Shown here is a 367-nucleotide RNA sequence from Pasteurella multocida, a member of the family "transfer-messenger RNA".
Pairs were carried over by alignment from the consensus structure, which is taken from published work.
About the family: Bacterial tmRNA, also known as 10Sa RNA or SsrA, is named for its dual tRNA and mRNA-like properties. Its role is to liberate the mRNA from a stalled ribosome. To accomplish this part of the tmRNA is used as a reading frame that ends in a translation stop signal. The broken mRNA is replaced in the ribosome by the tmRNA and translation of the tmRNA leads to addition of a proteolysis tag to the incomplete protein enabling recognition by a protease.
Lineage of the source: Bacteria > Pseudomonadati > Gammaproteobacteria > Pasteurella multocida > Pasteurella multocida subsp. multocida.

RNA sequence: GGGGCUGAUUCUGGAUUCGACGGGAUUAGCGAAGCCCAAGGUGCACGUCGAGGUGCGGUAGGCCUCGUAAAUAAACCGCAAAAAAAUAGUCGCAAACGACGAACAAUACGCUUUAGCAGCUUAAUAACCUGCUCAUAGCCUUCUCUCCCCAGCUUCCGCUCGUAAGACGGGGAUCAAGAGGAGUCAAAUUCAAACGAGAUCGCGUGGACGCCUCCGCUUGAGGAUCGAAGCGUUAAAUUGAAUCAAGCUAGUUUAUCUAUCGCGUGUCUGUCCGCAGUGGGUAAAUGAAAUUAAAGACGAGACUAAACGUGUAGUACUGAAGGUAGAGUAAUUUCGGACGCGGGUUCAACUCCCGCCAGCUCCACCA
Numbered sequence: 001g002g003g004g005c006u007g008a009u010u011c012u013g014g015a016u017u018c019g020a021c022g023g024g025a026u027u028a029g030c031g032a033a034g035c036c037c038a039a040g041g042u043g044c045a046c047g048u049c050g051a052g053g054u055g056c057g058g059u060a061g062g063c064c065u066c067g068u069a070a071a072u073a074a075a076c077c078g079c080a081a082a083a084a085a086a087u088a089g090u091c092g093c094a095a096a097c098g099a100c101g102a103a104c105a106a107u108a109c110g111c112u113u114u115a116g117c118a119g120c121u122u123a124a125u126a127a128c129c130u131g132c133u134c135a136u137a138g139c140c141u142u143c144u145c146u147c148c149c150c151a152g153c154u155u156c157c158g159c160u161c162g163u164a165a166g167a168c169g170g171g172g173a174u175c176a177a178g179a180g181g182a183g184u185c186a187a188a189u190u191c192a193a194a195c196g197a198g199a200u201c202g203c204g205u206g207g208a209c210g211c212c213u214c215c216g217c218u219u220g221a222g223g224a225u226c227g228a229a230g231c232g233u234u235a236a237a238u239u240g241a242a243u244c245a246a247g248c249u250a251g252u253u254u255a256u257c258u259a260u261c262g263c264g265u266g267u268c269u270g271u272c273c274g275c276a277g278u279g280g281g282u283a284a285a286u287g288a289a290a291u292u293a294a295a296g297a298c299g300a301g302a303c304u305a306a307a308c309g310u311g312u313a314g315u316a317c318u319g320a321a322g323g324u325a326g327a328g329u330a331a332u333u334u335c336g337g338a339c340g341c342g343g344g345u346u347c348a349a350c351u352c353c354c355g356c357c358a359g360c361u362c363c364a365c366c367a
Stems, first nucleotide, its partner, number of pairs: 001363007021336008034324003040318003044311005049067005054080006112137001114135001116132004140183006147172004153166003159198005203232003216248005251286009262275003266303004270298003340356005